Shown here is a 130-nucleotide sequence from Brassica oleracea, a member of the family "Small nucleolar RNA snoR74". The organism belongs to Brassica oleracea, within Eukaryota. The family's consensus secondary structure was predicted with WAR. A search with the family's covariance model found it, with a score of 100 bits.
[Rfam]
RNA sequence: CAAAAAGCAGGGCUCUCUUGUUACAUGAACAAAGCUCACGUAAAUGUCAGGAAAAUCGAAUUGGUCAUCGUGAUUGGGUGAACCUACGUUUCUUCUAUUAGCUAAUGGUUCAGUACAUGAUGGUACAUUA
Numbered sequence: 001c002a003a004a005a006a007g008c009a010g011g012g013c014u015c016u017c018u019u020g021u022u023a024c025a026u027g028a029a030c031a032a033a034g035c036u037c038a039c040g041u042a043a044a045u046g047u048c049a050g051g052a053a054a055a056u057c058g059a060a061u062u063g064g065u066c067a068u069c070g071u072g073a074u075u076g077g078g079u080g081a082a083c084c085u086a087c088g089u090u091u092c093u094u095c096u097a098u099u100a101g102c103u104a105a106u107g108g109u110u111c112a113g114u115a116c117a118u119g120a121u122g123g124u125a126c127a128u129u130a
Stems, first nucleotide, its partner, number of pairs: 005047001007045001011036002014033001016031001064124009079112006
It is annotated as an H/ACA-box small nucleolar RNA. Its family is annotated with RNA processing and nucleolus in the Gene Ontology.